[Rfam]
Rfam assigns this 66-nucleotide sequence from Acinetobacter guillouiae to the family "int-alpA RNA". Rfam classes the family as a small RNA. Acidobacteria (1 example), Planctomycetes (1 example), Proteobacteria. The family's consensus secondary structure is taken from published work. Lineage of the source: Bacteria > Pseudomonadota > Moraxellales > Moraxellaceae > Acinetobacter guillouiae.

RNA sequence: GUUAAGCCUAGCUCGACGGAGUGAAAGUCGAAUACCCAAUUCGAUUGGCUUAUCAAUUUUUUGGGG
Numbered sequence: 001g002u003u004a005a006g007c008c009u010a011g012c013u014c015g016a017c018g019g020a021g022u023g024a025a026a027g028u029c030g031a032a033u034a035c036c037c038a039a040u041u042c043g044a045u046u047g048g049c050u051u052a053u054c055a056a057u058u059u060u061u062u063g064g065g066g
Stems, first nucleotide, its partner, number of pairs: 001054001003052006011022004028044004036066002